Rfam assigns this 119-nucleotide RNA from Juglans regia to the family "Small nucleolar RNA snoR109".
RNA sequence: CGGUUGUAGCCAAAUCAAACGACUCAUUCACUCAGAGAAGUAACUGGCCGGUUUUUGUGAGACCUCUUUUUCCAAUCAAUCUCCGUCAACUAAUCUGCUUACUGAACUUUCUCACAUUC
Numbered sequence: 001c002g003g004u005u006g007u008a009g010c011c012a013a014a015u016c017a018a019a020c021g022a023c024u025c026a027u028u029c030a031c032u033c034a035g036a037g038a039a040g041u042a043a044c045u046g047g048c049c050g051g052u053u054u055u056u057g058u059g060a061g062a063c064c065u066c067u068u069u070u071u072c073c074a075a076u077c078a079a080u081c082u083c084c085g086u087c088a089a090c091u092a093a094u095c096u097g098c099u100u101a102c103u104g105a106a107c108u109u110u111c112u113c114a115c116a117u118u119c
Base pairs, nucleotide, nucleotide: 035113036112037111038110039109040108041105046099047098048097050095051094052093053092055089056088057087
Source information:
A search with the family's covariance model found it, with a score of 50 bits. Its family is annotated with RNA processing and nucleolus in the Gene Ontology. Rfam classes the family as an H/ACA-box small nucleolar RNA. On this family, see Marker et al., Curr Biol 2002: "Experimental RNomics: identification of 140 candidates for small non-messenger RNAs in the plant Arabidopsis thaliana". Rfam 15.1 lists 680 matches to the family in 220 species. Pairs were carried over by alignment from the consensus structure, which was predicted with WAR.